This 121-nucleotide sequence belongs to the Rfam family "LOOT RNA". Pairs were carried over by alignment from the consensus structure, which is taken from published work. Rfam's curators put it in the seed alignment. The family's RNA type in Rfam is small RNA.
RNA sequence: AGCCUAAACCAGUAGCAAUACUGGCAUGGUGAAAGUCAGUCAGGUAAUGCACAGAGAACCCGUCAUAUGGGGUCGCAUUACCUGCCGUAUCAGGAAACUGGUACGAGUGGCUUCGGCUACU
Numbered sequence: 001a002g003c004c005u006a007a008a009c010c011a012g013u014a015g016c017a018a019u020a021c022u023g024g025c026a027u028g029g030u031g032a033a034a035g036u037c038a039g040u041c042a043g044g045u046a047a048u049g050c051a052c053a054g055a056g057a058a059c060c061c062g063u064c065a066u067a068u069g070g071g072g073u074c075g076c077a078u079u080a081c082c083u084g085c086c087g088u089a090u091c092a093g094g095a096a097a098c099u100g101g102u103a104c105g106a107g108u109g110g111c112u113u114c115g116g117c118u119a120c121u
Stems, first nucleotide, its partner, number of pairs: 002030003009024006041084010056074002059071003086105008106121006